[Rfam]
RNA sequence: CUCCGCGAAAUAUAUUUAGGUAUAGCGUAUAAUAGUAACCAAGAGGGGUAGGGCUCUGAUAAGACUAGCGGGUUUAUUCCAACUUAGCAAAUCUUGAUAAACUUCGAAUACUCUUGGCGGAAUAUUAUACAGUCGGACAGUGACGGAUAAGCGCCAUUGUCAAAAGGGAAACAGCCCAGAUUCCUAUCUAAGGUCCCCAAGUUAUAACUCAGUGGAAAAGGAUGUGCGAUUACUAAGACAGCCAGGAUGUUGGCUUAGAAGCAGCCACUCAUUCAAAGAGUGCGUAAUAGCUCACUGGUCGAGUGAUUGUGCGCCGAAAAUUCAGCGGGGCUUAAGUUAUACACCGAAGAUGGAAGAUUUAUACAUUAGUAUGGAUCGGUAGCGGAGCGUUCUGUAAGCCUGUGAAGCAGUUGGGUAACCACCUGUGGAGGUAUCAGAAGUGCAAAU
Dot-bracket structure: ((((((....(((((....))))).((((((((.....(((((((.....(((...((..((((...(((((((......))))).))...))))..))..)).).....)))))))......))))))).)...(((((((.((......)).)))))))....(((......)))...((((.(((...(((......(.((((((...........((..((((((((((.......(((((.(((..(((.........)))...)))(...)(...((......)).).)))))...)))))))))).))....................))))))))))...)))))))((((((((......))))))))....))))))(.(((((...(((......((((.(((....))).))))...)))..)))))..).....
Shown here is a 447-nucleotide part of an RNA from Candidatus Gracilibacteria bacterium GN02-873, a member of the family "Bacterial large subunit ribosomal RNA".
The base pairs follow the family's consensus structure, which is taken from published work.
The literature on the family includes a 2001 paper in Science by Yusupov et al., "Crystal structure of the ribosome at 5.5 A resolution".